[Rfam]
RNA sequence: GCUUGAAUAGCUCAGUUGGCAGAGUGUCAGAGUUUUAAUCUGAGGGUCCUGGGUUCAAGUCCCUGUUCAGGUG
Numbered sequence: 001g002c003u004u005g006a007a008u009a010g011c012u013c014a015g016u017u018g019g020c021a022g023a024g025u026g027u028c029a030g031a032g033u034u035u036u037a038a039u040c041u042g043a044g045g046g047u048c049c050u051g052g053g054u055u056c057a058a059g060u061c062c063c064u065g066u067u068c069a070g071g072u073g
Stems, first nucleotide, its partner, number of pairs: 001072007010025004027043005049065001051063003
RNA: tRNA